RNA sequence: CCACUGUGGAUACCCCUGGCAGGUUACUCUUCCAGGCUCUGUCCAGGUGGAAUAGGGGAGCGCAAGACUCUGCCCCAUGAGGCGCAAUCCUUUUCCACAACAUCGGAGGUUAAGCCUGUCCCUUGAGUCUAUGUCUGCAUAUUCCUAUUGCUUUUCAGAGUCCCACGGACAAUGGCUGAGGAGAGAAGCCAUGCAGGAAACAUCU
Numbered sequence: 001c002c003a004c005u006g007u008g009g010a011u012a013c014c015c016c017u018g019g020c021a022g023g024u025u026a027c028u029c030u031u032c033c034a035g036g037c038u039c040u041g042u043c044c045a046g047g048u049g050g051a052a053u054a055g056g057g058g059a060g061c062g063c064a065a066g067a068c069u070c071u072g073c074c075c076c077a078u079g080a081g082g083c084g085c086a087a088u089c090c091u092u093u094u095c096c097a098c099a100a101c102a103u104c105g106g107a108g109g110u111u112a113a114g115c116c117u118g119u120c121c122c123u124u125g126a127g128u129c130u131a132u133g134u135c136u137g138c139a140u141a142u143u144c145c146u147a148u149u150g151c152u153u154u155u156c157a158g159a160g161u162c163c164c165a166c167g168g169a170c171a172a173u174g175g176c177u178g179a180g181g182a183g184a185g186a187a188g189c190c191a192u193g194c195a196g197g198a199a200a201c202a203u204c205u
Stems, first nucleotide, its partner, number of pairs: 001106002005102003008044005015036003019030001021028002047098004056091004060085001062083002065078001134197007151183006160170004
Dot-bracket structure: ((..((((((((..(((.(.((....)).)...)))...)))))..((((.....(((((.((.(............)...)).)..))))...)))).)))..))...........................(((((((..........((((((...((((...)))).......)))))).......)))))))........
RNA: Small nucleolar RNA SNORA73 family
Organism: Rhinolophus ferrumequinum